RNA sequence: AAGCGAGGACGACCUCCCCAGACCUCUGGGACGACUGUUCGGGACGACCCGA
Numbered sequence: 001a002a003g004c005g006a007g008g009a010c011g012a013c014c015u016c017c018c019c020a021g022a023c024c025u026c027u028g029g030g031a032c033g034a035c036u037g038u039u040c041g042g043g044a045c046g047a048c049c050c051g052a
Base pairs, nucleotide, nucleotide: 003018005016006015007014008013039052040051041050042049043048